RNA sequence: CAGGCGAUGGCGGCGCGCGCUACUCCGGCGCCGGGGCUGUGCUCUAGAGUCAGGUACCUGAAGUAGCGCGCGUCGACAAGCCACA
Numbered sequence: 001c002a003g004g005c006g007a008u009g010g011c012g013g014c015g016c017g018c019g020c021u022a023c024u025c026c027g028g029c030g031c032c033g034g035g036g037c038u039g040u041g042c043u044c045u046a047g048a049g050u051c052a053g054g055u056a057c058c059u060g061a062a063g064u065a066g067c068g069c070g071c072g073u074c075g076a077c078a079a080g081c082c083a084c085a
Stems, first nucleotide, its partner, number of pairs: 009077001011075002014072001016070007030055003035051004
This 85-nucleotide sequence from Arctia plantaginis belongs to the Rfam family "mir-275 microRNA precursor family". For this family Rfam cites "Anopheles gambiae miRNAs as actors of defence reaction against Plasmodium invasion" (Winter et al., Nucleic Acids Res, 2007). A search with the family's covariance model found it, with a score of 69 bits. Gene Ontology terms of the family: RISC complex and miRNA-mediated post-transcriptional gene silencing. Lineage of the source: Eukaryota > Ecdysozoa > Pterygota > Ditrysia > Arctia.